[Rfam]
RNA sequence: GUUCCAUCGUCAGGAGAGCGCUCUCCCGAAGAGCCGCCGAAGGCGCAGGCGCAAGCCGAACGCUCAGGCACCAGGACUGGCGAGCACCC
Numbered sequence: 001g002u003u004c005c006a007u008c009g010u011c012a013g014g015a016g017a018g019c020g021c022u023c024u025c026c027c028g029a030a031g032a033g034c035c036g037c038c039g040a041a042g043g044c045g046c047a048g049g050c051g052c053a054a055g056c057c058g059a060a061c062g063c064u065c066a067g068g069c070a071c072c073a074g075g076a077c078u079g080g081c082g083a084g085c086a087c088c089c
Stems, first nucleotide, its partner, number of pairs: 007083007020034004036069003039065002043063003049056002
Dot-bracket structure: ......(((((((......((((.......)))).(((((..(((...((....))....))))).))).......)))))))......